[Rfam]
Nucleotides: 171
Base pairs, nucleotide, nucleotide: 001016002015003014004013005012006011029171030170031169032168036163040158041157042156043155044154045153046149047148048147049146050145062144063143064142065141066140071136072135073134075132076131077130078129079128080127081126082110083109084108085107088103089102090101091100
Number, partner (000 for none) and nucleotide at each position: 001016u002015c003014c004013g005012c006011c007000g008000u009000g010000a011006g012005g013004c014003g015002g016001a017000a018000u019000c020000u021000g022000a023000a024000g025000g026000a027000a028000g029171g030170u031169g032168u033000a034000g035000g036163c037000a038000a039000a040158c041157c042156u043155g044154u045153g046149g047148u048147c049146u050145g051000a052000c053000g054000a055000a056000c057000a058000g059000a060000a061000a062144u063143c064142a065141c066140a067000u068000c069000a070000g071136g072135c073134u074000g075132u076131g077130u078129a079128u080127g081126g082110g083109g084108g085107u086000a087000a088103g089102g090101u091100c092000g093000c094000a095000a096000a097000a098000c099000a100091g101090a102089c103088c104000g105000a106000a107085g108084c109083c110082c111000a112000a113000u114000a115000g116000c117000u118000g119000u120000a121000c122000g123000g124000a125000a126081c127080u128079g129078u130077g131076c132075a133000u134073a135072g136071u137000a138000a139000a140066u141065g142064u143063g144062g145050c146049a147048g148047a149046u150000a151000u152000a153045u154044g155043c156042a157041g158040g159000g160000a161000a162000a163036g164000a165000a166000a167000c168032g169031u170030g171029u

Background: A member of the RNA family "Group II catalytic intron D1-D4-3" from Ruminococcus difficilis, 171 nucleotides long. Its family is annotated with Group II intron splicing in the Gene Ontology. Pairs were carried over by alignment from the consensus structure. About the family: Group II introns are found in rRNA, tRNA and mRNA of organelles in fungi, plants and protists, and also in mRNA in bacteria.